[Rfam]
Shown here is a 200-nucleotide RNA sequence from Streptomyces sp. TS71-3, a member of the family "Streptomyces RNA 1601". From the family's description: Identified by deep sequencing of transcriptome at the end of exponential growth phase. Appears longer on northern blot than sequencing transcript. It scores 154 bits against the family's covariance model. The literature on the family includes a 2011 paper in RNA Biol by Vockenhuber et al., "Deep sequencing-based identification of small non-coding RNAs in Streptomyces coelicolor". The base pairs follow the family's consensus structure.
RNA sequence: GACGACCGGCUGGACACCUUCGUAGAUCCAGGUGCCCGGCCCGCAAGUGGAGGCUCCGAACUCCCACCUGGCUGUCCGUUGGGCGGCAGGUCACCGGUCAGGCGGUAGCGUCCCCGACGCCCGCCCGAUGCGCCCCGCGGUCAGCGGCGGUGCUCCGGUAGUGACAGGAGCUCCGCAUGCGAUCGUCCGGGGCAUUUUUC
Numbered sequence: 001g002a003c004g005a006c007c008g009g010c011u012g013g014a015c016a017c018c019u020u021c022g023u024a025g026a027u028c029c030a031g032g033u034g035c036c037c038g039g040c041c042c043g044c045a046a047g048u049g050g051a052g053g054c055u056c057c058g059a060a061c062u063c064c065c066a067c068c069u070g071g072c073u074g075u076c077c078g079u080u081g082g083g084c085g086g087c088a089g090g091u092c093a094c095c096g097g098u099c100a101g102g103c104g105g106u107a108g109c110g111u112c113c114c115c116g117a118c119g120c121c122c123g124c125c126c127g128a129u130g131c132g133c134c135c136c137g138c139g140g141u142c143a144g145c146g147g148c149g150g151u152g153c154u155c156c157g158g159u160a161g162u163g164a165c166a167g168g169a170g171c172u173c174c175g176c177a178u179g180c181g182a183u184c185g186u187c188c189g190g191g192g193c194a195u196u197u198u199u200c
Stems, first nucleotide, its partner, number of pairs: 004099006012037002038092004044070002047067004051062002071087007101125005108120005132193006138185003144180002147176004152171005